The record is a 102-nucleotide RNA sequence from Bacillus safensis, which matches "Purine riboswitch aptamer" in Rfam. The family's consensus secondary structure is taken from published work. From the family's description: Riboswitches are metabolite binding domains within certain messenger RNAs that serve as precision sensors for their corresponding targets. Allosteric rearrangement of mRNA structure is mediated by ligand binding, and this results in modulation of gene expression. A class of riboswitches that selectively recognises guanine and becomes saturated at concentrations as low as 5 nM. In Bacillus subtilis, this mRNA motif is located on at least five separate transcriptional units that together encode 17 genes that are mostly involved in purine transport and purine nucleotide biosynthesis. A search with the family's covariance model found it, with a score of 83 bits.

[Rfam]
Nucleotides: 102
Base pairs, nucleotide, nucleotide: 020086022084023083024082025081029049031047032046033045034044035043058078059077060076061075062074063073064072
Number, partner (000 for none) and nucleotide at each position: 001000a002000g003000a004000a005000a006000u007000c008000a009000a010000a011000u012000a013000g014000a015000u016000a017000g018000a019000a020086g021000u022084c023083g024082u025081a026000u027000a028000a029049u030000c031047g032046c033045g034044g035043g036000g037000a038000u039000a040000u041000g042000g043035c044034c045033c046032g047031c048000a049029a050000g051000u052000u053000u054000c055000u056000a057000c058078c059077a060076a061075g062074c063073u064072a065000c066000c067000g068000u069000a070000a071000a072064u073063g074062g075061c076060u077059u078058g079000a080000c081025u082024a083023c084022g085000u086020c087000a088000a089000u090000u091000c092000a093000c094000a095000c096000u097000c098000g099000u100000u101000u102000g